[Rfam]
RNA: mir-489 microRNA precursor family
Organism: Chinchilla lanigera
RNA sequence: GUGGCAGCAUGGUGGUCGUAUAUGUGAUGCCACCUCCUGGAACUUUUAGGGGUGACAUCACAUGCUCAGCAAGUUAAACUGCUAC
Numbered sequence: 001g002u003g004g005c006a007g008c009a010u011g012g013u014g015g016u017c018g019u020a021u022a023u024g025u026g027a028u029g030c031c032a033c034c035u036c037c038u039g040g041a042a043c044u045u046u047u048a049g050g051g052g053u054g055a056c057a058u059c060a061c062a063u064g065c066u067c068a069g070c071a072a073g074u075u076a077a078a079c080u081g082c083u084a085c
Stems, first nucleotide, its partner, number of pairs: 002084006015070002018067001021064002024061004029056001031054003037050002